RNA sequence: AAUCGCCUAAUUACUCGAAGACUUGCGUUCCUACGUGAGGUAUCAGUAGAGUGAUUAGGCGAUU
Numbered sequence: 001a002a003u004c005g006c007c008u009a010a011u012u013a014c015u016c017g018a019a020g021a022c023u024u025g026c027g028u029u030c031c032u033a034c035g036u037g038a039g040g041u042a043u044c045a046g047u048a049g050a051g052u053g054a055u056u057a058g059g060c061g062a063u064u
Stems, first nucleotide, its partner, number of pairs: 001064016020041001022039007
RNA: DUF3800-VIII RNA